[Rfam]
RNA sequence: CGGAGCGUGGCGCAGUCUGGCUAGCGCACUCGGUUUGGGACCGAAAGGUCGGGAGUUCAAAUCUCUUCGCUCCGA
Numbered sequence: 001c002g003g004a005g006c007g008u009g010g011c012g013c014a015g016u017c018u019g020g021c022u023a024g025c026g027c028a029c030u031c032g033g034u035u036u037g038g039g040a041c042c043g044a045a046a047g048g049u050c051g052g053g054a055g056u057u058c059a060a061a062u063c064u065c066u067u068c069g070c071u072c073c074g075a
Stems, first nucleotide, its partner, number of pairs: 001074007010027004030044004051067005